RNA: Bradyrhizobiaceae sRNA BjrC174
Organism: Ancylobacter novellus
RNA sequence: UUCACGGCCUCGUCAAGAGAAAUCACAGAGCUGCCCGAAUUCAGCCGUUGCGGCGCCCAUCGGGGCUUCCAAUCUCUUAACCAUAGCGUUGGGCCGGUUCGCGUGGCGCAUCGGUUUCCCAGCCCCCCAGCCCCCCGCGGCGCUCGUGGGCCGGCCUGACGCUAGUUCUAGGUUCAAUCCCCGAAUUGCUCUUAGGGCCGGCUCUGCCGGCCCUUUU
Numbered sequence: 001u002u003c004a005c006g007g008c009c010u011c012g013u014c015a016a017g018a019g020a021a022a023u024c025a026c027a028g029a030g031c032u033g034c035c036c037g038a039a040u041u042c043a044g045c046c047g048u049u050g051c052g053g054c055g056c057c058c059a060u061c062g063g064g065g066c067u068u069c070c071a072a073u074c075u076c077u078u079a080a081c082c083a084u085a086g087c088g089u090u091g092g093g094c095c096g097g098u099u100c101g102c103g104u105g106g107c108g109c110a111u112c113g114g115u116u117u118c119c120c121a122g123c124c125c126c127c128c129a130g131c132c133c134c135c136c137g138c139g140g141c142g143c144u145c146g147u148g149g150g151c152c153g154g155c156c157u158g159a160c161g162c163u164a165g166u167u168c169u170a171g172g173u174u175c176a177a178u179c180c181c182c183g184a185a186u187u188g189c190u191c192u193u194a195g196g197g198c199c200g201g202c203u204c205u206g207c208c209g210g211c212c213c214u215u216u217u
Base pairs, nucleotide, nucleotide: 036171042050084164085163086162087161088160089159091156093155094154095153096152097151098150099149100148101147102146106143107142108141109140112137113136114135122131123130195213196212197211198210199209200208201207202206